Rfam assigns this 105-nucleotide RNA from Gracilibacillus kekensis to the family "SAM riboswitch aptamer (S box leader)".
[Rfam]
RNA sequence: AACUCAUCCAGAGAGAGGGAGGGACUGACCCUAAGAACUCUCGGCAACCGCUUAUGAUAAGCAAGGUGCCAAUUUCAGAAGCAUAGAUAUGCUUAAAGAUGAGAA
Numbered sequence: 001a002a003c004u005c006a007u008c009c010a011g012a013g014a015g016a017g018g019g020a021g022g023g024a025c026u027g028a029c030c031c032u033a034a035g036a037a038c039u040c041u042c043g044g045c046a047a048c049c050g051c052u053u054a055u056g057a058u059a060a061g062c063a064a065g066g067u068g069c070c071a072a073u074u075u076c077a078g079a080a081g082c083a084u085a086g087a088u089a090u091g092c093u094u095a096a097a098g099a100u101g102a103g104a105a
Base pairs, nucleotide, nucleotide: 003103004102005101006100007099008098013042014041015040016039017038021031022030023029025078026077027076028075043070044069045068046067048066049065050062051061052060053059074097079094080093081092082091083090084089

Rfam's curators write: The SAM riboswitch is found upstream of a number of genes which code for proteins involved in methionine or cysteine biosynthesis in Gram-positive bacteria. Taxonomically the source falls in Gracilibacillus (Bacteria, Bacilli, Caryophanales, Bacillaceae). It scores 92 bits against the family's covariance model. Pairs were carried over by alignment from the consensus structure, which is taken from published work.